[Rfam]
RNA sequence: CCCGCAACUAGACGGAAAGACCCCAUGGAGCUUUACUAUAGCCUGCUAUUGAGUUUCGGUUAAGUAUGCACAGGAUAGGUGGGAGACGAAGAGACUGGCCUUUUGGGGUCAGAGGAGUCACCGUUGGGAUACCACUCUUACUUGAUUGAAAUUCUAACUCCAGACCGUGAUCCGGCUGGAGGACCGUGGCAGGUGGGUAGUUUGACUGGGGCGGUCGCCUCCCAAAGAGUAACGGAGGCGUACAAAGGUACUCUCAGAAUGGUUGGAAAUCAUUCAACGAGCGCAAACGCAGAAGAGUGCUUGACUGCGAGACAAACAAGUCGAGCAGGGACGAAAGUCGGUGUUAGUGAUCCGGCGGUGCAGAAUGGAAUGGCCGUCGCUUAACGGAUAAAAGCUACCCUGGGGAUAACAGGCUGAUCUCGCCCAAGAGUUCACAUCGACGGCGAGGUUUGGCACCUCGAUGUCGGCUCAUCGCAUCCUGGAGGUGAAUUCGCUUCCAAGGGUUGGGCUGUCCGCCCAUUAAAGCGGUACGCGAGCUGGGUUCAGAACGUCGUGAGACAGUUCGGUCCCUAUCUGUUGUGGGCGUU
Numbered sequence: 001c002c003c004g005c006a007a008c009u010a011g012a013c014g015g016a017a018a019g020a021c022c023c024c025a026u027g028g029a030g031c032u033u034u035a036c037u038a039u040a041g042c043c044u045g046c047u048a049u050u051g052a053g054u055u056u057c058g059g060u061u062a063a064g065u066a067u068g069c070a071c072a073g074g075a076u077a078g079g080u081g082g083g084a085g086a087c088g089a090a091g092a093g094a095c096u097g098g099c100c101u102u103u104u105g106g107g108g109u110c111a112g113a114g115g116a117g118u119c120a121c122c123g124u125u126g127g128g129a130u131a132c133c134a135c136u137c138u139u140a141c142u143u144g145a146u147u148g149a150a151a152u153u154c155u156a157a158c159u160c161c162a163g164a165c166c167g168u169g170a171u172c173c174g175g176c177u178g179g180a181g182g183a184c185c186g187u188g189g190c191a192g193g194u195g196g197g198u199a200g201u202u203u204g205a206c207u208g209g210g211g212c213g214g215u216c217g218c219c220u221c222c223c224a225a226a227g228a229g230u231a232a233c234g235g236a237g238g239c240g241u242a243c244a245a246a247g248g249u250a251c252u253c254u255c256a257g258a259a260u261g262g263u264u265g266g267a268a269a270u271c272a273u274u275c276a277a278c279g280a281g282c283g284c285a286a287a288c289g290c291a292g293a294a295g296a297g298u299g300c301u302u303g304a305c306u307g308c309g310a311g312a313c314a315a316a317c318a319a320g321u322c323g324a325g326c327a328g329g330g331a332c333g334a335a336a337g338u339c340g341g342u343g344u345u346a347g348u349g350a351u352c353c354g355g356c357g358g359u360g361c362a363g364a365a366u367g368g369a370a371u372g373g374c375c376g377u378c379g380c381u382u383a384a385c386g387g388a389u390a391a392a393a394g395c396u397a398c399c400c401u402g403g404g405g406a407u408a409a410c411a412g413g414c415u416g417a418u419c420u421c422g423c424c425c426a427a428g429a430g431u432u433c434a435c436a437u438c439g440a441c442g443g444c445g446a447g448g449u450u451u452g453g454c455a456c457c458u459c460g461a462u463g464u465c466g467g468c469u470c471a472u473c474g475c476a477u478c479c480u481g482g483a484g485g486u487g488a489a490u491u492c493g494c495u496u497c498c499a500a501g502g503g504u505u506g507g508g509c510u511g512u513c514c515g516c517c518c519a520u521u522a523a524a525g526c527g528g529u530a531c532g533c534g535a536g537c538u539g540g541g542u543u544c545a546g547a548a549c550g551u552c553g554u555g556a557g558a559c560a561g562u563u564c565g566g567u568c569c570c571u572a573u574c575u576g577u578u579g580u581g582g583g584c585g586u587u
Base pairs, nucleotide, nucleotide: 001583002582003581004580005579006578007577008576010575011574012573014570015569022404023403024402025401027400028399029396030395031394032393033392035201036200037199038198042193043192044191045190046189047188048187051154052153053152054151055150056149057148058147059146060145061144062143063142064141065140066139068137078136079135080134081133082132085119086118087117095112096111097110098109099108100107101106158181159180160179163177165175166174167173204216205215206214207213217239218238219237220236221235222234240385242342243341248300249299250298251297252296253295254280255279257275258274259273260272261271262270281290282289305328306327307326308325311322312321313320330339331338332337353379354378355377356376357375358374359373361372362371413454414453415452417451418448419447420446421445422444423443424442428438429437465540466538467537468536469535470532471529472528473527474526475525478503479502481498482497483496484495485494486493505519506518507517508516509515546564547563548562549561550559551558552557
Dot-bracket structure: ((((((((.(((.((......((((.(((((((.((((...(((((((..((((((((((((((((.(.........(((((..(((.......(((((((....)))))))....)))............)))))).))))))))))))))))...(((..(.(((.....))).).))).....)))))))....))))..((((.....))))((((((...........))))))(.((....((((((((.((((((.......))))))...))((......))....))))))....((((..(((......)))..)))).(((....))).))..........(((((((.((........))))))))).....)......)))))..))))))........(((.((((((((...((.......))...)))))))..))))..........(((((((((((..((.((((((......))))))...)).(((((.....))))).....)))))..)..)))).).....(((((((....))).))))....))..)))))))))))....
Rfam assigns this 587-nucleotide part of an RNA from Bulleidia extructa to the family "Bacterial large subunit ribosomal RNA".
Rfam links the family to the GO terms ribosome and structural constituent of ribosome.